This 82-nucleotide RNA from Cohnella rhizosphaerae belongs to the Rfam family "ZMP/ZTP riboswitch aptamer (pfl RNA motif)". A search with the family's covariance model found it, with a score of 63 bits. The organism belongs to Cohnella, within Bacteria.
RNA sequence: CAGUUCCGGUGUAACUGGCGACACAAGUGGGAUUAACCACAGUGGAGCACCGGAAUGUCGGCCGGUCGCCUGGGCAGAGAGC
Numbered sequence: 001c002a003g004u005u006c007c008g009g010u011g012u013a014a015c016u017g018g019c020g021a022c023a024c025a026a027g028u029g030g031g032a033u034u035a036a037c038c039a040c041a042g043u044g045g046a047g048c049a050c051c052g053g054a055a056u057g058u059c060g061g062c063c064g065g066u067c068g069c070c071u072g073g074g075c076a077g078a079g080a081g082c
Stems, first nucleotide, its partner, number of pairs: 003056010015044001017070005027040004059077001061075003